RNA sequence: CUAAACAUCAACCCAACAAUGUUAGAUCUUCAAAUUUACAGAUCUAACAUUGUUGGGUUGAUGUUUAG
Number, nucleotide and partner (000 for none) at each position: 001c000002u067003a066004a065005a064006c063007a062008u061009c060010a000011a058012c057013c056014c055015a054016a053017c052018a051019a050020u049021g048022u047023u046024a045025g044026a043027u000028c000029u000030u000031c000032a000033a000034a000035u000036u000037u000038a000039c000040a000041g000042a000043u026044c025045u024046a023047a022048c021049a020050u019051u018052g017053u016054u015055g014056g013057g012058u011059u000060g009061a008062u007063g006064u005065u004066u003067a002068g000

This 68-nucleotide RNA from Mytilus edulis belongs to the Rfam family "mir-8/mir-141/mir-200 microRNA precursor family". A search with the family's covariance model found it, with a score of 48 bits. Clan: mir-8 microRNA precursor clan.